[Rfam]
Nucleotides: 131
Stems, first nucleotide, its partner, number of pairs: 006018004021061002027056001029054005039047002085118006091109008
Number, partner (000 for none) and nucleotide at each position: 001000a002000c003000c004000u005000u006018c007017c008016u009015u010000g011000u012000c013000u014000c015009g016008g017007g018006g019000u020000g021061g022060u023000u024000u025000g026000g027056g028000c029054u030053g031052u032051u033050c034000a035000a036000u037000g038000a039047a040046c041000g042000u043000c044000u045000a046040g047039u048000g049000a050033g051032a052031a053030c054029a055000u056027c057000c058000c059000u060022g061021c062000u063000a064000a065000c066000a067000c068000c069000u070000g071000a072000c073000c074000c075000a076000a077000c078000a079000c080000a081000u082000u083000c084000a085118g086117c087116a088115u089114c090113a091109c092108c093107u094106g095105a096104g097103c098102g099000a100000u101000c102098u103097g104096c105095u106094c107093a108092g109091g110000c111000u112000a113090u114089g115088g116087u117086g118085c119000a120000a121000u122000u123000u124000u125000u126000g127000g128000a129000a130000c131000c

Source information
Shown here is a 131-nucleotide RNA sequence from Ameiurus melas, a member of the family "U4atac minor spliceosomal RNA". The family has 61 seed sequences and 1,648 matches in Rfam 15.1. By type it is a spliceosomal small nuclear RNA. Its family is annotated with spliceosomal tri-snRNP complex assembly, pre-mRNA 5'-splice site binding and mRNA 5'-splice site recognition in the Gene Ontology. Its Rfam clan is "U4 clan". Taxonomically the source falls in Ameiurus (Eukaryota, Teleostomi, Neopterygii, Ictaluridae). Rfam describes the family as follows. U4atac is an essential component of the minor U12-type spliceosome complex which is required for removal of the rarer class of eukaryotic introns (AT-AC, U12-type).